[Rfam]
RNA sequence: CCAACGGCUCUUUUAAGAGCCACCCAAAUUUUCUGUAAACGGGCUG
Numbered sequence: 001c002c003a004a005c006g007g008c009u010c011u012u013u014u015a016a017g018a019g020c021c022a023c024c025c026a027a028a029u030u031u032u033c034u035g036u037a038a039a040c041g042g043g044c045u046g
Stems, first nucleotide, its partner, number of pairs: 006021006
The family of this 46-nucleotide sequence from Circaetus pectoralis is "Histone 3' UTR stem-loop".
The organism belongs to Circaetus, within Eukaryota.
About the family: The mRNAs of metazoan histone genes lack a poly-A tail. 3' end processing occurs at a site between a highly conserved stem-loop (modelled by this family) and a purine rich region around 20 nts downstream (the histone downstream element, or HDE). The stem-loop is bound by a 31 kDa stem-loop binding protein (SLBP - also termed the histone hairpin binding protein, or HBP). Together with U7 snRNA binding of the HDE, SLBP binding nucleate s the formation of the processing complex.
It is annotated as a cis-regulatory element.